[Rfam]
RNA: Guanidine-I riboswitch aptamer
Organism: Pseudomonas agarici
RNA sequence: AAAAUGGUUGGCUAGGGUUCCGAUUCACUGAAAAGUGAACGCCUGGACCGAGAGCUGACGACCUCUAGUUGAGGUUACACGGCGGGAUAAAAGCCCGGGAGAC
Dot-bracket structure: ......((((((..((...(((.(((((......)))))...).)).))....))))))((((((.....)))))).(.[...(((.......))).)..]..